[Rfam]
Notes
The family of this 45-nucleotide sequence from Limihaloglobus sulfuriphilus is "Acido-Lenti-1 RNA". The source organism's lineage runs through Bacteria, Pseudomonadati, Planctomycetota, Sedimentisphaeraceae and Limihaloglobus. By type it is a small RNA.
RNA sequence: CACAGGGCGAUGCCCUAUGCUAAGAUAUUUCGCACCUUCAGUGCU
Numbered sequence: 001c002a003c004a005g006g007g008c009g010a011u012g013c014c015c016u017a018u019g020c021u022a023a024g025a026u027a028u029u030u031c032g033c034a035c036c037u038u039c040a041g042u043g044c045u
Base pairs, nucleotide, nucleotide: 001019002018004016005015006014007013008012032044033043034042035041